RNA: tRNA
Organism: Promethearchaeum syntrophicum
RNA sequence: GCGGUGGUAAUCAAGUGGUUACGAUGCUGGACUGCUAAUCCAGUGCACAUCUGUGCGCGAGGGUUCAAGUCCCUCCCACCGCG
Numbered sequence: 001g002c003g004g005u006g007g008u009a010a011u012c013a014a015g016u017g018g019u020u021a022c023g024a025u026g027c028u029g030g031a032c033u034g035c036u037a038a039u040c041c042a043g044u045g046c047a048c049a050u051c052u053g054u055g056c057g058c059g060a061g062g063g064u065u066c067a068a069g070u071c072c073c074u075c076c077c078a079c080c081g082c083g
Stems, first nucleotide, its partner, number of pairs: 001082007010025003027043005059075005